RNA sequence: CUAUGGAGUGGCUUUAUUGCGCAAUUUUAGCAAACAUCUGUCGCGCUUGUGGGCUUAUUAUUUCUCCCAGAUUCAUGGCCCGGACAGUUGUCCAACCGCUUCGCCCAACCAGGUGUCGCGGCGCCGGCGCUUCCACCGGAGCGACCAGGCCCCCGGGUCCGCACUGCCCAAUCAGGCAGGCGAUGAACACGUAGCUACCCGCCGCGCAUCGGGACAACAAAAAAGGGCAACCCUCGGGUUGCCCU
Numbered sequence: 001c002u003a004u005g006g007a008g009u010g011g012c013u014u015u016a017u018u019g020c021g022c023a024a025u026u027u028u029a030g031c032a033a034a035c036a037u038c039u040g041u042c043g044c045g046c047u048u049g050u051g052g053g054c055u056u057a058u059u060a061u062u063u064c065u066c067c068c069a070g071a072u073u074c075a076u077g078g079c080c081c082g083g084a085c086a087g088u089u090g091u092c093c094a095a096c097c098g099c100u101u102c103g104c105c106c107a108a109c110c111a112g113g114u115g116u117c118g119c120g121g122c123g124c125c126g127g128c129g130c131u132u133c134c135a136c137c138g139g140a141g142c143g144a145c146c147a148g149g150c151c152c153c154c155g156g157g158u159c160c161g162c163a164c165u166g167c168c169c170a171a172u173c174a175g176g177c178a179g180g181c182g183a184u185g186a187a188c189a190c191g192u193a194g195c196u197a198c199c200c201g202c203c204g205c206g207c208a209u210c211g212g213g214a215c216a217a218c219a220a221a222a223a224a225g226g227g228c229a230a231c232c233c234u235c236g237g238g239u240u241g242c243c244c245u
Base pairs, nucleotide, nucleotide: 001006040054041053042052073186074185075184076183078158079157080156081155082093083092084091085090096121097120098119099118103114104113105112123150124149125148129142130141131140132139133138160182161181162180164179165178166177167176168175187209190206191205192204194202195201224245225244226243227242229240230239231238232237
Overview:
The record is a 245-nucleotide sequence from Pseudomonas fluvialis, which matches "Pseudomonas sRNA P24" in Rfam. Lineage of the source: Bacteria > Pseudomonadati > Pseudomonadota > Pseudomonadales > Pseudomonas. Rfam describes the family as follows. This small RNA (sRNA) was computationally identified in the genome of the opportunistic pathogen Pseudomonas aeruginosa and its expression verified by Northern blot analysis. P24 is conserved across several Pseudomonas species and in Azotobacter vinelandii. It appears to be consistently located between a hypothetical protein gene and a transcriptional regulator gene (AsnC family) in the genomes of all these species. The literature on the family includes a 2006 paper in Nucleic Acids Res by Livny et al., "Identification of 17 Pseudomonas aeruginosa sRNAs and prediction of sRNA-encoding genes in 10 diverse pathogens using the bioinformatic tool sRNAPredict2".